The record is a 220-nucleotide RNA sequence from Dictyobacter aurantiacus, which matches "HNH endonuclease-associated RNA and ORF (HEARO) RNA" in Rfam. Rfam classes the family as a non-coding RNA gene. The family's consensus secondary structure is taken from published work. On this family, see Weinberg et al., Nature 2009: "Exceptional structured noncoding RNAs revealed by bacterial metagenome analysis". Rfam 15.1 lists 952 matches to the family in 249 species.
[Rfam]
RNA sequence: GUCAGGAACCCAAUCCCCUCAAAGGAGAUGGGCUUGUUUCGACAAGCCGAACCUGACCAGUCUCAGGCUUGAAAUAGAGCCUACGUUAUGGAAGAAAUUAGGUAUGGCAGAGUGCGAGGCCAGCUCUGCUCUCUACGGCUGUAAGUUAAACAUCUGUAAAGGGUUAAGGACGUGCUUACAGCGAUAAACCUUCCAGUAACAUUGACGAGGCCAACCUCAC
Numbered sequence: 001g002u003c004a005g006g007a008a009c010c011c012a013a014u015c016c017c018c019u020c021a022a023a024g025g026a027g028a029u030g031g032g033c034u035u036g037u038u039u040c041g042a043c044a045a046g047c048c049g050a051a052c053c054u055g056a057c058c059a060g061u062c063u064c065a066g067g068c069u070u071g072a073a074a075u076a077g078a079g080c081c082u083a084c085g086u087u088a089u090g091g092a093a094g095a096a097a098u099u100a101g102g103u104a105u106g107g108c109a110g111a112g113u114g115c116g117a118g119g120c121c122a123g124c125u126c127u128g129c130u131c132u133c134u135a136c137g138g139c140u141g142u143a144a145g146u147u148a149a150a151c152a153u154c155u156g157u158a159a160a161g162g163g164u165u166a167a168g169g170a171c172g173u174g175c176u177u178a179c180a181g182c183g184a185u186a187a188a189c190c191u192u193c194c195a196g197u198a199a200c201a202u203u204g205a206c207g208a209g210g211c212c213a214a215c216c217u218c219a220c
Base pairs, nucleotide, nucleotide: 001057002056003055004054005053006052010032011031013029014028017025018024033046034045035044036043060206061205062204065082066081067080068079069078085200086199087198088197089196090194091193092192093191094190102136103135106130107129108128109127110126111125112124113123114216118212119211120210121209138182139181140180141179142178143177144176145175146174150173151172153170154169155168157166158165159164